Overview:
The family of this 105-nucleotide RNA from Vreelandella subglaciescola is "t44 RNA". Rfam classes the family as a small RNA. Rfam describes the family as follows. This family consists of a number of bacterial RNA genes of between 135 and 170 bases in length. A search with the family's covariance model found it, with a score of 69 bits.
RNA sequence: AACUGCAAGCCUUGAAAACACACAUGCACCGGCACAUGGUCCCGGGUGCCUUUGAACGCCACACGGCGUCACUGGUCGGAUCCAUGGGGUGCGUGGAGGCCUAAC
Numbered sequence: 001a002a003c004u005g006c007a008a009g010c011c012u013u014g015a016a017a018a019c020a021c022a023c024a025u026g027c028a029c030c031g032g033c034a035c036a037u038g039g040u041c042c043c044g045g046g047u048g049c050c051u052u053u054g055a056a057c058g059c060c061a062c063a064c065g066g067c068g069u070c071a072c073u074g075g076u077c078g079g080a081u082c083c084a085u086g087g088g089g090u091g092c093g094u095g096g097a098g099g100c101c102u103a104a105c
Stems, first nucleotide, its partner, number of pairs: 023095008035086005040080003048076003